mir-172 microRNA precursor family: a 119-nucleotide RNA from Brassica cretica. For this family Rfam cites "Short RNAs can identify new candidate transposable element families in Arabidopsis" (Mette et al., Plant Physiol, 2002). It scores 70 bits against the family's covariance model. Rfam's curators write: mir-172 has been experimentally verified in Arabidopsis thaliana. This family is thought to target mRNAs coding for APETALA2-like transcription factors. The mature sequence is excised from the 3' arm of the hairpin. Pairs were carried over by alignment from the consensus structure, which was predicted with PFOLD.

[Rfam]
RNA sequence: UUGGUUGUUGAUGCAGCAUCAUCAAGAUUCUCAUAUACAUAUCAGAACCCUAAUUAAUAUUAAUUAGGGUUUUUUUUCAAUUUCCAUGUGAAUCUUAAUGGUGCUGCACCUACAGAAAA
Numbered sequence: 001u002u003g004g005u006u007g008u009u010g011a012u013g014c015a016g017c018a019u020c021a022u023c024a025a026g027a028u029u030c031u032c033a034u035a036u037a038c039a040u041a042u043c044a045g046a047a048c049c050c051u052a053a054u055u056a057a058u059a060u061u062a063a064u065u066a067g068g069g070u071u072u073u074u075u076u077u078c079a080a081u082u083u084c085c086a087u088g089u090g091a092a093u094c095u096u097a098a099u100g101g102u103g104c105u106g107c108a109c110c111u112a113c114a115g116a117a118a119a
Stems, first nucleotide, its partner, number of pairs: 010110001012108011024096007032088002